[Rfam]
RNA sequence: UCACCUCUCCUUUAGGAGAGGUCGAAACUACUAAUAGUAGUUUCGGGUGAGGAU
Numbered sequence: 001u002c003a004c005c006u007c008u009c010c011u012u013u014a015g016g017a018g019a020g021g022u023c024g025a026a027a028c029u030a031c032u033a034a035u036a037g038u039a040g041u042u043u044c045g046g047g048u049g050a051g052g053a054u
Stems, first nucleotide, its partner, number of pairs: 004021007024044009